[Rfam]
Shown here is an 82-nucleotide RNA sequence from Stercorarius parasiticus, a member of the family "Small nucleolar RNA SNORD45". The match comes from Rfam's covariance-model search (43 bits). The source organism's lineage runs through Eukaryota, Eumetazoa, Teleostomi, Charadriiformes and Stercorarius.
Nucleotides: 082
Base pairs, nucleotide, nucleotide: 001080002079003078004077
Number, partner (000 for none) and nucleotide at each position: 001080g002079g003078u004077c005000u006000g007000u008000g009000a010000u011000g012000g013000g014000c015000g016000u017000u018000g019000g020000c021000a022000u023000g024000u025000a026000u027000u028000a029000c030000c031000u032000g033000a034000g035000c036000a037000g038000a039000c040000a041000g042000c043000u044000g045000a046000g047000g048000a049000u050000g051000a052000u053000c054000a055000g056000u057000u058000g059000g060000a061000u062000c063000u064000c065000g066000a067000a068000u069000g070000a071000c072000u073000c074000u075000g076000a077004g078003a079002c080001c081000u082000g